[Rfam]
RNA sequence: CUUCACGGAGCCGAGCCACAGCGGACGGUCCGCCGGGCGCUGUGGCCCGUGGACGGCCUGGAGCGCCUGCGCCUC
Numbered sequence: 001c002u003u004c005a006c007g008g009a010g011c012c013g014a015g016c017c018a019c020a021g022c023g024g025a026c027g028g029u030c031c032g033c034c035g036g037g038c039g040c041u042g043u044g045g046c047c048c049g050u051g052g053a054c055g056g057c058c059u060g061g062a063g064c065g066c067c068u069g070c071g072c073c074u075c
Base pairs, nucleotide, nucleotide: 016024017023031071032070033069038065039064043060044059045058047056048055049054

Shown here is a 75-nucleotide RNA from Streptomyces uncialis, a member of the family "ASpks TB sRNA". Rfam classes the family as an antisense RNA. Pairs were carried over by alignment from the consensus structure, which is taken from published work.